[Rfam]
RNA: Small nucleolar RNA SNORA1
Organism: Calypte anna
RNA sequence: UGCCAUUAUUAUUCAGCAGAGACACACAACUCACUCUGUGUCUAAAUUGAAUAAUGUGGCUAGAAGAGUAACAGGUUGUGCUUUCCUCACUGUACAAUUAAUUGCAGUGGUGACAAUGAGACCUGUAACAGGU
Numbered sequence: 001u002g003c004c005a006u007u008a009u010u011a012u013u014c015a016g017c018a019g020a021g022a023c024a025c026a027c028a029a030c031u032c033a034c035u036c037u038g039u040g041u042c043u044a045a046a047u048u049g050a051a052u053a054a055u056g057u058g059g060c061u062a063g064a065a066g067a068g069u070a071a072c073a074g075g076u077u078g079u080g081c082u083u084u085c086c087u088c089a090c091u092g093u094a095c096a097a098u099u100a101a102u103u104g105c106a107g108u109g110g111u112g113a114c115a116a117u118g119a120g121a122c123c124u125g126u127a128a129c130a131g132g133u
Base pairs, nucleotide, nucleotide: 002060003059004058007056008055009054022043024041025040026039027038028037071126072125073124074123075122085112087110088109089108090107